A member of the RNA family "Small nucleolar RNA SNORA79" from Synaphobranchus kaupii, 143 nucleotides long.
RNA sequence: UGACAACCGUUCCUCCUACUGCUUGAAGCUCUAGCUCUAGGAUUUUAGGUUGUCACAGAUCAUAGCGGGUCUUUUUCACCCGGAGUUCAUGAGGUAGCGGGGCUGCCCCUGGUGAACGCUGGAAUUUGCGGGACCCAACACAA
Number, nucleotide and partner (000 for none) at each position: 001u055002g054003a053004c052005a051006a050007c049008c048009g000010u000011u000012c000013c000014u042015c041016c040017u039018a038019c000020u000021g035022c034023u033024u000025g000026a000027a000028g000029c000030u000031c000032u000033a023034g022035c021036u000037c000038u018039a017040g016041g015042a014043u000044u000045u000046u000047a000048g008049g007050u006051u005052g004053u003054c002055a001056c000057a000058g000059a000060u000061c000062a000063u000064a000065g000066c000067g000068g135069g134070u133071c132072u131073u130074u000075u000076u000077c000078a000079c000080c122081c121082g120083g119084a000085g117086u116087u115088c114089a113090u000091g000092a000093g109094g108095u000096a000097g000098c000099g000100g000101g000102g000103c000104u000105g000106c000107c000108c094109c093110u000111g000112g000113u089114g088115a087116a086117c085118g000119c083120u082121g081122g080123a000124a000125u000126u000127u000128g000129c000130g073131g072132g071133a070134c069135c068136c000137a000138a000139c000140a000141c000142a000143a000

The match comes from Rfam's covariance-model search (103 bits).
From the family's description: ACA65 (SNORA79) is a member of the H/ACA class of snoRNAs that guide the sites of modification of uridines to pseudouridines. This snoRNA was identified by computational screening and its expression in mouse experimentally verified by Northern blot and primer extension analysis.
Rfam links the family to the GO terms nucleolus and RNA processing.
The base pairs follow the family's consensus structure, which was predicted with RNAalifold.
Rfam classes the family as an H/ACA-box small nucleolar RNA.